Rfam assigns this 259-nucleotide RNA from Orthohepadnavirus hominoidei to the family "Hepatitis B virus post-transcriptional regulatory element 1151-1410". Taxonomically the source falls in Orthohepadnavirus hominoidei (Viruses, Revtraviricetes, Blubervirales, Hepadnaviridae). Rfam's curators write: Part of 500 base pair long HBV PRE, contains nucleotides 1151-1410. Enhances nuclear export of intronless transcripts and represses the splicing mechanism to a comparable degree to that of the full-length PRE. It was proposed to be the core HBV PRE element. contains 3 known regulatory elements: PRE SL-alpha (nucleotides 1292-1321), human La protein binding site (nucleotide 1275-1291) and SRE-1 (nucleotides 1252-1348). By type it is a cis-regulatory element. A reference for the family is Visootsat et al. (2015), "A conserved RNA structural element within the hepatitis B virus post-transcriptional regulatory element enhance nuclear export of intronless transcripts and repress the splicing mechanism", Mol Biol Rep. The family has 2 seed sequences and 13 matches in Rfam 15.1. The match comes from Rfam's covariance-model search (277 bits). The base pairs follow the family's consensus structure, which was predicted with RNAfold.

[Rfam]
RNA sequence: UUGCCCGGCAACGGUCAGGUCUCUGCCAAGUGUUUGCUGACGCAACCCCCACGGGUUGGGGCUUGGCCAUAGGCCAUCGGCGCAUGCGUGGAACCUUUGUGGCUCCUCUGCCGAUCCAUACUGCGGAACUCCUAGCAGCUUGUUUUGCUCGCAGCCGGUCUGGAGCGAAACUUAUCGGAACCGACAACUCAGUUGUCCUCUCUCGGAAAUACACCUCCUUUCCAUGGCUGCUAGGCUGUGCUGCCAACUGGAUCCUGCG
Numbered sequence: 001u002u003g004c005c006c007g008g009c010a011a012c013g014g015u016c017a018g019g020u021c022u023c024u025g026c027c028a029a030g031u032g033u034u035u036g037c038u039g040a041c042g043c044a045a046c047c048c049c050c051a052c053g054g055g056u057u058g059g060g061g062c063u064u065g066g067c068c069a070u071a072g073g074c075c076a077u078c079g080g081c082g083c084a085u086g087c088g089u090g091g092a093a094c095c096u097u098u099g100u101g102g103c104u105c106c107u108c109u110g111c112c113g114a115u116c117c118a119u120a121c122u123g124c125g126g127a128a129c130u131c132c133u134a135g136c137a138g139c140u141u142g143u144u145u146u147g148c149u150c151g152c153a154g155c156c157g158g159u160c161u162g163g164a165g166c167g168a169a170a171c172u173u174a175u176c177g178g179a180a181c182c183g184a185c186a187a188c189u190c191a192g193u194u195g196u197c198c199u200c201u202c203u204c205g206g207a208a209a210u211a212c213a214c215c216u217c218c219u220u221u222c223c224a225u226g227g228c229u230g231c232u233a234g235g236c237u238g239u240g241c242u243g244c245c246a247a248c249u250g251g252a253u254c255c256u257g258c259g
Stems, first nucleotide, its partner, number of pairs: 001045004006039006014031002018027003049091004055087002059083001061081003064076005101112003113254006123244004128239002131235006138228003142171009152162003177198003182195004205223005